[Rfam]
RNA sequence: GGUAAAGUGGCCGAGCAGGCGGCGAAUUGUAGCUUCGAAGACAGAGGUUUGAGUCCCCUCUUUACCA
Numbered sequence: 001g002g003u004a005a006a007g008u009g010g011c012c013g014a015g016c017a018g019g020c021g022g023c024g025a026a027u028u029g030u031a032g033c034u035u036c037g038a039a040g041a042c043a044g045a046g047g048u049u050u051g052a053g054u055c056c057c058c059u060c061u062u063u064a065c066c067a
Stems, first nucleotide, its partner, number of pairs: 001066007010020003023037004043059002046056002
RNA: tRNA